[Rfam]
Nucleotides: 126
Stems, first nucleotide, its partner, number of pairs: 015117007023109001033089002036087002042084001044082002049054001061077006
Number, partner (000 for none) and nucleotide at each position: 001000g002000u003000u004000u005000g006000c007000a008000c009000u010000u011000g012000u013000c014000g015117g016116g017115g018114a019113a020112g021111g022000g023109u024000g025000a026000g027000a028000a029000c030000c031000u032000u033089c034088g035000a036087u037086u038000a039000a040000g041000g042084u043000u044082c045081g046000a047000c048000u049054c050000g051000a052000g053000c054049g055000a056000a057000a058000g059000a060000a061077c062076g063075u064074u065073g066072c067000c068000a069000a070000c071000g072066g073065u074064a075063a076062c077061g078000g079000c080000c081045c082044g083000u084042a085000g086037g087036g088034u089033g090000a091000g092000g093000a094000g095000u096000g097000a098000a099000g100000c101000g102000a103000c104000g105000a106000a107000u108000a109023a110000u111021c112020c113019u114018u115017c116016c117015u118000c119000c120000a121000c122000c123000a124000c125000c126000a